Description:
Rfam assigns this 73-nucleotide RNA from Podiceps cristatus to the family "mir-1744 microRNA precursor family". The match comes from Rfam's covariance-model search (74 bits). The base pairs follow the family's consensus structure, which was predicted with RNAalifold.

RNA sequence: AGGACCCAGUGCUCCUCUGUUCAACUCAAAAGCAGAACCUGUGUUGGCUUCAACAGGAACAAGACCGAGCCCU
Numbered sequence: 001a002g003g004a005c006c007c008a009g010u011g012c013u014c015c016u017c018u019g020u021u022c023a024a025c026u027c028a029a030a031a032g033c034a035g036a037a038c039c040u041g042u043g044u045u046g047g048c049u050u051c052a053a054c055a056g057g058a059a060c061a062a063g064a065c066c067g068a069g070c071c072c073u
Base pairs, nucleotide, nucleotide: 002071003070005069007067009065010064013061016058017057018055019054020053021052023050024049026047027046028045029044031042033041